[Rfam]
RNA sequence: ACCUGCAUUCGAAAGUGAUCGCGGCCUUGGCCGUGGCCCGGUCAUCGAUAGUGCAGGGAGAGGAACGGCGAGAGCGUUCCCGUGUUUGGGGGGGCCGCGUCCCCCCCAGACCCUGGUGCUGUCGGACA
Dot-bracket structure: .((((((((.....(((((((.((((........)))))))))))....))))))))...........(((.(((........((((((((((.......))))).)))))......))).)))....